[Rfam]
RNA: mraW RNA
Organism: Microbacterium sp. SLBN-146
RNA sequence: CUAGUGCCCUCGAUCCUGACUCCCAGCCGCUCACGCCCUGGCACACUUCCCCGGUGCCAGGUCAGAGCGGAUGGGGAUCAGGACCGAGGGACCCAGGGCC
Number, nucleotide and partner (000 for none) at each position: 001c000002u000003a000004g000005u000006g000007c000008c000009c000010u087011c086012g085013a000014u083015c082016c081017u000018g079019a078020c000021u076022c075023c074024c073025a072026g000027c070028c069029g068030c067031u066032c065033a000034c000035g063036c000037c061038c060039u059040g058041g057042c056043a055044c054045a000046c000047u000048u000049c000050c000051c000052c000053g000054g044055u043056g042057c041058c040059a039060g038061g037062u000063c035064a000065g032066a031067g030068c029069g028070g027071a000072u025073g024074g023075g022076g021077a000078u019079c018080a000081g016082g015083a014084c000085c012086g011087a010088g000089g000090g000091a000092c000093c000094c000095a000096g000097g000098g000099c000100c000